[Rfam]
Nucleotides: 090
Stems, first nucleotide, its partner, number of pairs: 012037002017032006040084004045080003048075003055069004
Number, partner (000 for none) and nucleotide at each position: 001000g002000c003000u004000u005000g006000a007000a008000a009000a010000a011000g012037g013036c014000a015000a016000a017032c018031c019030a020029c021028u022027c023000g024000a025000a026000a027022g028021g029020g030019u031018g032017g033000g034000a035000c036013g037012c038000a039000a040084a041083g042082c043081c044000a045080c046079u047078g048075g049074c050073c051000u052000a053000a054000g055069u056068u057067c058066g059000c060000u061000g062000c063000a064000g065000g066058c067057g068056a069055a070000u071000a072000u073050g074049g075048c076000a077000g078047c079046a080045g081043g082042g083041u084040u085000g086000c087000c088000g089000g090000g

The family of this 90-nucleotide RNA sequence from Olavius sp. associated proteobacterium Delta 1 is "c-di-GMP-I riboswitch aptamer". The family's consensus secondary structure is taken from published work.